[Rfam]
This 63-nucleotide RNA from Ureibacillus manganicus belongs to the Rfam family "Bacillaceae-1 RNA". Pairs were carried over by alignment from the consensus structure, which is taken from published work. The family has 95 seed sequences and 5,721 matches in Rfam 15.1. A search with the family's covariance model found it, with a score of 43 bits. The family's RNA type in Rfam is small RNA. Taxonomically the source falls in Ureibacillus manganicus (Bacteria, Bacillota, Bacilli, Caryophanales).
RNA sequence: CGCCACUUAUCGUCGAAAACGCUACGUCCUGUAGCAUCGACGAUAUGACCAACGUCCUGUUGG
Dot-bracket structure: .......(((((((......(((((.....)))))...)))))))...(((((.....)))))
Numbered sequence: 001c002g003c004c005a006c007u008u009a010u011c012g013u014c015g016a017a018a019a020c021g022c023u024a025c026g027u028c029c030u031g032u033a034g035c036a037u038c039g040a041c042g043a044u045a046u047g048a049c050c051a052a053c054g055u056c057c058u059g060u061u062g063g
Stems, first nucleotide, its partner, number of pairs: 008045007021035005049063005